[Rfam]
RNA: Small nucleolar RNA snoR97
Organism: Zea mays
RNA sequence: GUGCUCUGAGUUGCGCGGAGGCUGAAAAAGCUCGGAGAGCGUGUGUUGUCAUCAGCUUCGUCUCUGUUUACUGUGAGUUGGGAGUUAAAUAACAGCACGAGAUUC
Numbered sequence: 001g002u003g004c005u006c007u008g009a010g011u012u013g014c015g016c017g018g019a020g021g022c023u024g025a026a027a028a029a030g031c032u033c034g035g036a037g038a039g040c041g042u043g044u045g046u047u048g049u050c051a052u053c054a055g056c057u058u059c060g061u062c063u064c065u066g067u068u069u070a071c072u073g074u075g076a077g078u079u080g081g082g083a084g085u086u087a088a089a090u091a092a093c094a095g096c097a098c099g100a101g102a103u104u105c
Stems, first nucleotide, its partner, number of pairs: 042099007054086006062077003